[Rfam]
RNA sequence: UUCAUGGGGUUUGCGACCGCCCCACGAGGCGCCAGCCGAAGAUCGCGUUCCCGCAUAUCCUGACCUGAGGAGGAACGCAGAUG
Number, nucleotide and partner (000 for none) at each position: 001u000002u000003c000004a000005u024006g023007g022008g021009g020010u019011u000012u000013g000014c000015g000016a000017c000018c000019g010020c009021c008022c007023c006024a005025c000026g000027a000028g000029g000030c000031g000032c000033c000034a000035g000036c000037c000038g000039a000040a000041g000042a000043u000044c000045g078046c077047g076048u075049u074050c073051c000052c000053g000054c000055a000056u000057a000058u000059c000060c000061u000062g000063a000064c000065c000066u000067g000068a000069g000070g000071a000072g000073g050074a049075a048076c047077g046078c045079a000080g000081a000082u000083g000
The family of this 83-nucleotide sequence from Gemmobacter megaterium is "chrB-a RNA".
The match comes from Rfam's covariance-model search (64 bits).
The family's RNA type in Rfam is cis-regulatory element.
Lineage of the source: Bacteria > Alphaproteobacteria > Rhodobacterales > Paracoccaceae > Gemmobacter.